[Rfam]
RNA sequence: UUUACCACAAGAUAUGUUUGAUAUUCUUGGUUGUUAAUUUAAUAUCGACCAGGAAUCAAACAUAUUAUUAUGGUAGU
Numbered sequence: 001u002u003u004a005c006c007a008c009a010a011g012a013u014a015u016g017u018u019u020g021a022u023a024u025u026c027u028u029g030g031u032u033g034u035u036a037a038u039u040u041a042a043u044a045u046c047g048a049c050c051a052g053g054a055a056u057c058a059a060a061c062a063u064a065u066u067a068u069u070a071u072g073g074u075a076g077u
Base pairs, nucleotide, nucleotide: 005073006072007071009069011066012065013064014063015062016061017060018059019058020057021056022055024053025052029050030049031048032047033046
RNA: mir-190 microRNA precursor family